[Rfam]
Nucleotides: 499
Base pairs, nucleotide, nucleotide: 001440002439003438004437005436006435011024012023013022014021015020026129027127028126029125030124031123032122033121035120036117037116038115039114040113041111042110043109044108050102051100052099056096057095058094060092061091062090063089067085068084069082070081071080072079073078133158134157135156136155137154138153139152141150142149163174164173165172178350179349180348181347183346184345185344189340190339191338198337199336200335201334202333203332204331216310217309220307221306222305223304224303225302226301227300228299229298237294238293239292240291241290243267244266245265248262249261250260268272273288277286278285351430352429353428354427355426356425357424358423359422360421361420362419363418364417365416441494443491444490445489446488447487448486449485450484451483452482459478460477461476462475463474464473465472466471
Number, partner (000 for none) and nucleotide at each position: 001440c002439u003438c004437c005436c006435c007000g008000a009000a010000a011024u012023a013022g014021c015020u016000u017000u018000a019000g020015g021014g022013c023012u024011a025000g026129c027127c028126u029125c030124a031123u032122a033121c034000g035120a036117g037116a038115g039114u040113g041111c042110c043109g044108g045000a046000g047000g048000u049000a050102g051100a052099g053000c054000a055000c056096u057095g058094a059000c060092u061091g062090g063089g064000c065000u066000a067085g068084g069082g070081g071080c072079c073078u074000u075000c076000g077000c078073g079072g080071g081070u082069u083000a084068c085067c086000g087000a088000a089063c090062c091061c092060a093000a094058u095057c096056a097000a098000a099052c100051u101000g102050c103000g104000a105000a106000u107000g108044c109043c110042g111041g112000a113040c114039a115038c116037u117036u118000g119000a120035u121033g122032u123031a124030u125029g126028g127027g128000a129026g130000u131000c132000a133158g134157a135156c136155u137154a138153c139152g140000a141150g142149u143000g144000c145000u146000a147000a148000g149142a150141u151000c152139c153138g154137u155136a156135g157134u158133c159000g160000a161000g162000a163174g164173g165172g166000g167000a168000a169000c170000a171000g172165c173164c174163c175000g176000g177000a178350c179349c180348g181347c182000c183346g184345g185344c186000u187000a188000a189340g190339g191338u192000c193000c194000c195000g196000a197000a198337g199336c200335g201334g202333u203332g204331c205000u206000a207000a208000g209000u210000g211000g212000g213000g214000a215000a216310g217309g218000a219000u220307g221306u222305g223304g224303g225302g226301c227300u228299g229298c230000g231000a232000a233000g234000a235000c236000a237294a238293c239292c240291a241290g242000g243267a244266u245265g246000u247000u248262g249261g250260c251000u252000u253000a254000g255000a256000a257000g258000c259000a260250g261249c262248c263000a264000u265245c266244a267243u268272u269000c270000a271000a272268a273288g274000a275000g276000u277286g278285c279000g280000u281000a282000a283000u284000a285278g286277c287000u288273c289000a290241c291240u292239g293238g294237u295000c296000a297000a298229g299228u300227g301226g302225c303224c304223c305222u306221g307220c308000g309217c310216c311000g312000a313000a314000a315000a316000u317000g318000a319000a320000a321000c322000g323000g324000g325000g326000c327000u328000c329000a330000a331204g332203c333202a334201c335200c336199g337198c338191a339190c340189c341000g342000a343000a344185g345184c346183c347181g348180c349179g350178g351430a352429u353428c354427u355426g356425a357424g358423a359422g360421g361420u362419g363418a364417g365416a366000g367000g368000u369000g370000a371000g372000a373000g374000g375000u376000u377000g378000g379000a380000a381000g382000u383000g384000g385000g386000a387000a388000u389000g390000a391000c392000g393000a394000u395000u396000c397000u398000c399000a400000c401000a402000u403000c404000u405000c406000a407000c408000u409000u410000c411000u412000c413000a414000c415000a416365u417364c418363u419362c420361a421360c422359c423358u424357c425356u426355c427354a428353g429352g430351u431000g432000g433000u434000a435006g436005g437004g438003g439002a440001g441494c442000g443491u444490u445489c446488c447487c448486a449485c450484c451483g452482g453000g454000u455000a456000g457000a458000a459478g460477u461476c462475a463474c464473a465472c466471u467000g468000g469000g470000a471466g472465g473464u474463g475462u476461g477460g478459u479000g480000g481000a482452c483451u484450g485449g486448u487447g488446g489445g490444a491443a492000g493000u494441g495000a496000g497000a498000a499000u